[Rfam]
RNA: General Flavivirus exoribonuclease-resistant RNA element
RNA sequence: CAAUGUCAGACCACGCUACGGACGUGGCUACGUCUAGGCGGAGAGUGGCAGGUCUGCGAUAGUGCCCCAGGAGGACUGGGU
Numbered sequence: 001c002a003a004u005g006u007c008a009g010a011c012c013a014c015g016c017u018a019c020g021g022a023c024g025u026g027g028c029u030a031c032g033u034c035u036a037g038g039c040g041g042a043g044a045g046u047g048g049c050a051g052g053u054c055u056g057c058g059a060u061a062g063u064g065c066c067c068c069a070g071g072a073g074g075a076c077u078g079g080g081u
Stems, first nucleotide, its partner, number of pairs: 005060002007056005029047003066080005